[Rfam]
RNA sequence: UAAACCCGAGCGGGAGAGUCCACCAGGGCACGAUGCGGUGGCGCCGAAGGAGCAAAUCCUCCCCGGAACCUCUCAGGCAGAAGGACCGCUCGGACUGG
Number, nucleotide and partner (000 for none) at each position: 001u000002a000003a000004a000005c000006c093007c092008g091009a090010g089011c088012g087013g086014g000015a000016g000017a000018g000019u000020c041021c040022a039023c038024c000025a000026g000027g000028g000029c000030a000031c000032g000033a000034u000035g000036c000037g000038g023039u022040g021041g020042c000043g078044c077045c076046g074047a073048a000049g000050g072051a071052g070053c000054a000055a000056a000057u065058c000059c000060u000061c000062c000063c000064c000065g057066g000067a000068a000069c000070c052071u051072c050073u047074c046075a000076g045077g044078c043079a000080g000081a000082a000083g000084g000085a000086c013087c012088g011089c010090u009091c008092g007093g006094a000095c000096u000097g000098g000
The record is a 98-nucleotide RNA sequence from Phytomonospora endophytica, which matches "Glycine riboswitch aptamer" in Rfam. The match comes from Rfam's covariance-model search (70 bits). NCBI's taxonomy places the organism under Bacteria, Actinomycetota, Actinomycetes, Micromonosporaceae, Phytomonospora.